[Rfam]
RNA sequence: AAAGUAAGUUGGGUAAUCGCUGGUGAAUGAUCGCAAGGUCUCACGAGAGGAAAGUCCGAGCUCCAUAGGGCAGGGUGCUGGAUAACGUCCAGUCAGAGUGAUCUGAAGGAUAGUGCCACAGAAAUGGACCGCCUAUGUAUCAUCAUGUUUGAUGCAGGUAAGGGUGCAACCGUGGUGUAAGAGACCACGAGGAGAUAUGGUGACAUAUUUCCUGGUAAACCCCACUUGGAGCAAGACCUGAUAGGAAUGCACAUGGAGUUGCCCGCUCCGCAUUCGGGUUGGUCGCUUGAGCUGUAUAGUAAUAUACAGCCUAGAUAGAUGAUUACCACUUCAAUGGUGGGAGCUAGAAGCGUUUUACCACUAGAAGAACAGAACUCGGCUUACAGACUUACUUUCCAA
Numbered sequence: 001a002a003a004g005u006a007a008g009u010u011g012g013g014u015a016a017u018c019g020c021u022g023g024u025g026a027a028u029g030a031u032c033g034c035a036a037g038g039u040c041u042c043a044c045g046a047g048a049g050g051a052a053a054g055u056c057c058g059a060g061c062u063c064c065a066u067a068g069g070g071c072a073g074g075g076u077g078c079u080g081g082a083u084a085a086c087g088u089c090c091a092g093u094c095a096g097a098g099u100g101a102u103c104u105g106a107a108g109g110a111u112a113g114u115g116c117c118a119c120a121g122a123a124a125u126g127g128a129c130c131g132c133c134u135a136u137g138u139a140u141c142a143u144c145a146u147g148u149u150u151g152a153u154g155c156a157g158g159u160a161a162g163g164g165u166g167c168a169a170c171c172g173u174g175g176u177g178u179a180a181g182a183g184a185c186c187a188c189g190a191g192g193a194g195a196u197a198u199g200g201u202g203a204c205a206u207a208u209u210u211c212c213u214g215g216u217a218a219a220c221c222c223c224a225c226u227u228g229g230a231g232c233a234a235g236a237c238c239u240g241a242u243a244g245g246a247a248u249g250c251a252c253a254u255g256g257a258g259u260u261g262c263c264c265g266c267u268c269c270g271c272a273u274u275c276g277g278g279u280u281g282g283u284c285g286c287u288u289g290a291g292c293u294g295u296a297u298a299g300u301a302a303u304a305u306a307c308a309g310c311c312u313a314g315a316u317a318g319a320u321g322a323u324u325a326c327c328a329c330u331u332c333a334a335u336g337g338u339g340g341g342a343g344c345u346a347g348a349a350g351c352g353u354u355u356u357a358c359c360a361c362u363a364g365a366a367g368a369a370c371a372g373a374a375c376u377c378g379g380c381u382u383a384c385a386g387a388c389u390u391a392c393u394u395u396c397c398a399a
Stems, first nucleotide, its partner, number of pairs: 001395010011384001012327007020047002023044004052382003056379005061231004068264004073227005078092005093107001094105004108222002113220002115216003129163002131159003136156006171189006191212009235284004245275006255269005291310008

Background: Rfam assigns this 399-nucleotide RNA from Tepidibacillus sp. HK-1 to the family "Bacterial RNase P class A". It scores 306 bits against the family's covariance model. Rfam describes the family as follows. Ribonuclease P (RNase P) is a ubiquitous endoribonuclease, found in archaea, bacteria and eukarya as well as chloroplasts and mitochondria.